[Rfam]
The family of this 177-nucleotide sequence from Ideonella dechloratans is "Manganese Mn2+ riboswitch aptamer (yybP-ykoY)".
This RNA was originally discovered in E. coli during a large scale screen and was named SraF. The family was later found to exist upstream of related families of protein genes in many bacteria, including the the yybP and ykoK genes in B. subtilis. The specific functions of these proteins are unknown, but this structured RNA element may be involved in their genetic regulation as a riboswitch.
It scores 88 bits against the family's covariance model.
The literature on the family includes a 2001 paper in Curr Biol by Argaman et al., "Novel small RNA-encoding genes in the intergenic regions of Escherichia coli".
The base pairs follow the family's consensus structure.
RNA sequence: CGCCUCGUCAUUGGGGAGUAGCCGCCCUGCACCACCCGCAGGGGUCGACGUCAACACACUUGGCCGCGAUGGCCAUGGCGUCGACAGCCCAUCCGCCUGGCAAGACCUUUGACUGCGUGACCUCUGGAGGGCCGGAGAUGUCGCGUGGUCAUUGCGCAGCCGCCGGCCCCUGGACCU
Numbered sequence: 001c002g003c004c005u006c007g008u009c010a011u012u013g014g015g016g017a018g019u020a021g022c023c024g025c026c027c028u029g030c031a032c033c034a035c036c037c038g039c040a041g042g043g044g045u046c047g048a049c050g051u052c053a054a055c056a057c058a059c060u061u062g063g064c065c066g067c068g069a070u071g072g073c074c075a076u077g078g079c080g081u082c083g084a085c086a087g088c089c090c091a092u093c094c095g096c097c098u099g100g101c102a103a104g105a106c107c108u109u110u111g112a113c114u115g116c117g118u119g120a121c122c123u124c125u126g127g128a129g130g131g132c133c134g135g136a137g138a139u140g141u142c143g144c145g146u147g148g149u150c151a152u153u154g155c156g157c158a159g160c161c162g163c164c165g166g167c168c169c170c171u172g173g174a175c176c177u
Base pairs, nucleotide, nucleotide: 026042027041028040044085045084046083047082048081049080050079051078052077053076061075062074063073064072065071087175089173090172091171